Glycine riboswitch aptamer: a 107-nucleotide RNA sequence from Rhizobiales bacterium GAS113. The source organism's lineage runs through Bacteria, Pseudomonadati, Pseudomonadota, Alphaproteobacteria and Hyphomicrobiales. The base pairs follow the family's consensus structure. A search with the family's covariance model found it, with a score of 63 bits.
RNA sequence: UCGAUCCUCGCGGGAGAGACUGAAGCGGUUGCGCCAAGCGCUGCCGCGGAGGCGCCGAAGGCGUAACCGCCCCGGAAACGCUCAGGCAAAAGGACCGCGAGGAGCUG
Numbered sequence: 001u002c003g004a005u006c007c008u009c010g011c012g013g014g015a016g017a018g019a020c021u022g023a024a025g026c027g028g029u030u031g032c033g034c035c036a037a038g039c040g041c042u043g044c045c046g047c048g049g050a051g052g053c054g055c056c057g058a059a060g061g062c063g064u065a066a067c068c069g070c071c072c073c074g075g076a077a078a079c080g081c082u083c084a085g086g087c088a089a090a091a092g093g094a095c096c097g098c099g100a101g102g103a104g105c106u107g
Stems, first nucleotide, its partner, number of pairs: 006102008020052002054087003057083002061081003067075002